[Rfam]
RNA sequence: GGGGAGUUGAUGAUGAGAUGAUGAUUGCAUAGUUCAGCAGAUAAUGAUGAAGACAAUGAGUUUCGUCUUUCGCUCUUAUCUGACUUGACCUCUC
Numbered sequence: 001g002g003g004g005a006g007u008u009g010a011u012g013a014u015g016a017g018a019u020g021a022u023g024a025u026u027g028c029a030u031a032g033u034u035c036a037g038c039a040g041a042u043a044a045u046g047a048u049g050a051a052g053a054c055a056a057u058g059a060g061u062u063u064c065g066u067c068u069u070u071c072g073c074u075c076u077u078a079u080c081u082g083a084c085u086u087g088a089c090c091u092c093u094c
Base pairs, nucleotide, nucleotide: 004091006089007088008087009086010085
Rfam assigns this 94-nucleotide sequence from Callorhinchus milii to the family "Small nucleolar RNA snR60/Z15/Z230/Z193/J17". A reference for the family is Lowe and Eddy (1999), "A computational screen for methylation guide snoRNAs in yeast", Science. The family is grouped with related families in Rfam's "SNORD77 clan". Rfam classes the family as a C/D-box small nucleolar RNA. A search with the family's covariance model found it, with a score of 52 bits.